[Rfam]
RNA: skipping-rope RNA
RNA sequence: AUUAUUUGAGGUGGAAAAUUUCGCACGAUCCCCACGCUGUUGGUACAGACAAGGGAAACCUGAGAGAUGCAGGAGAAGUGUGCGCCUGCCAAAUAAU
Numbered sequence: 001a002u003u004a005u006u007u008g009a010g011g012u013g014g015a016a017a018a019u020u021u022c023g024c025a026c027g028a029u030c031c032c033c034a035c036g037c038u039g040u041u042g043g044u045a046c047a048g049a050c051a052a053g054g055g056a057a058a059c060c061u062g063a064g065a066g067a068u069g070c071a072g073g074a075g076a077a078g079u080g081u082g083c084g085c086c087u088g089c090c091a092a093a094u095a096a097u
Base pairs, nucleotide, nucleotide: 001097002096003095004094005093006092007091008090011035012034013033014032026082027081037064038051039050040049041048069089070088071087072086073085